[Rfam]
RNA sequence: CCCGUGCUCGAAGAAUCGCAAACGAAGCUUACACACGGAUCCGUAUGGAUCAUUCCAAGCUUUGGGGAAAGUCCCCGGACACACACGGCGUAAACGCACCGGCAUAGAAGCAUCUCCGGUUUAGCUUGCGUUCAGCAAAUCCGCGUCGUCCUCGGUCAUGAGCUUCCUCGUCCCCUCGGGGAGAAGGCGAAGAUAUGAGUCUUUGGAGUUUGUGGUCAUCAUGGGGGCGGUGUCGGUGAACGUGGGUACAUCUCGUCACAGACGAUAGUUAUGCGAUUGCUCUUCUGUCGCAAGACGGGAGGGUAACUCGAUGGGGCUUAUUCUCGGCGCACGG
Numbered sequence: 001c002c003c004g005u006g007c008u009c010g011a012a013g014a015a016u017c018g019c020a021a022a023c024g025a026a027g028c029u030u031a032c033a034c035a036c037g038g039a040u041c042c043g044u045a046u047g048g049a050u051c052a053u054u055c056c057a058a059g060c061u062u063u064g065g066g067g068a069a070a071g072u073c074c075c076c077g078g079a080c081a082c083a084c085a086c087g088g089c090g091u092a093a094a095c096g097c098a099c100c101g102g103c104a105u106a107g108a109a110g111c112a113u114c115u116c117c118g119g120u121u122u123a124g125c126u127u128g129c130g131u132u133c134a135g136c137a138a139a140u141c142c143g144c145g146u147c148g149u150c151c152u153c154g155g156u157c158a159u160g161a162g163c164u165u166c167c168u169c170g171u172c173c174c175c176u177c178g179g180g181g182a183g184a185a186g187g188c189g190a191a192g193a194u195a196u197g198a199g200u201c202u203u204u205g206g207a208g209u210u211u212g213u214g215g216u217c218a219u220c221a222u223g224g225g226g227g228c229g230g231u232g233u234c235g236g237u238g239a240a241c242g243u244g245g246g247u248a249c250a251u252c253u254c255g256u257c258a259c260a261g262a263c264g265a266u267a268g269u270u271a272u273g274c275g276a277u278u279g280c281u282c283u284u285c286u287g288u289c290g291c292a293a294g295a296c297g298g299g300a301g302g303g304u305a306a307c308u309c310g311a312u313g314g315g316g317c318u319u320a321u322u323c324u325c326g327g328c329g330c331a332c333g334g
Base pairs, nucleotide, nucleotide: 002334003333004332005331006330007329008327009326010325011324014278015277016276017275018274019273023064024063025062026061027060028059038051039050040049041048042047069319070318071317073316074315075314076313088097089096090095160249162247166245167244169242170241171240175238186228188226215219280303281302282301283300284299285298286297287296288295
RNA: RNase MRP
Organism: Saitoella complicata